[Rfam]
RNA sequence: UCGGGCAAAUGUACAGCGGAACCUUUAACCGCUAAAGUGAAGCGCCUUGCCAAGAAGUGACCUGUGAAUGAGGUUGCGUUUGUAAGAAAAGCAAAAUGCAUAGACAUUUUGGCCGCCAGAGAACUGUGAAUUAUGGUAAUCAUUUGCAAAUGCAAGCAGUCCGUUGCCGGUGGAUUGCAAACUGCAACAGGGUUCAGGACAACAAAUAAAGGCAUGAGCAGUCAGUGCAUUCACCACUGGCUGUUUUUG
Numbered sequence: 001u002c003g004g005g006c007a008a009a010u011g012u013a014c015a016g017c018g019g020a021a022c023c024u025u026u027a028a029c030c031g032c033u034a035a036a037g038u039g040a041a042g043c044g045c046c047u048u049g050c051c052a053a054g055a056a057g058u059g060a061c062c063u064g065u066g067a068a069u070g071a072g073g074u075u076g077c078g079u080u081u082g083u084a085a086g087a088a089a090a091g092c093a094a095a096a097u098g099c100a101u102a103g104a105c106a107u108u109u110u111g112g113c114c115g116c117c118a119g120a121g122a123a124c125u126g127u128g129a130a131u132u133a134u135g136g137u138a139a140u141c142a143u144u145u146g147c148a149a150a151u152g153c154a155a156g157c158a159g160u161c162c163g164u165u166g167c168c169g170g171u172g173g174a175u176u177g178c179a180a181a182c183u184g185c186a187a188c189a190g191g192g193u194u195c196a197g198g199a200c201a202a203c204a205a206a207u208a209a210a211g212g213c214a215u216g217a218g219c220a221g222u223c224a225g226u227g228c229a230u231u232c233a234c235c236a237c238u239g240g241c242u243g244u245u246u247u248u249g
Base pairs, nucleotide, nucleotide: 001044006039007038015033016032017031018030019029022212023211024210025209026208045192046191047190048189049188057077058076059075060074061073062072063071064234065233066232067231068230069229070228078182079181080180081179082178083177084176085175216246217245218244219243220242221241222240223239224238225237226236227235
About this RNA: FuFi-1 RNA: a 249-nucleotide RNA sequence. It is annotated as a small RNA.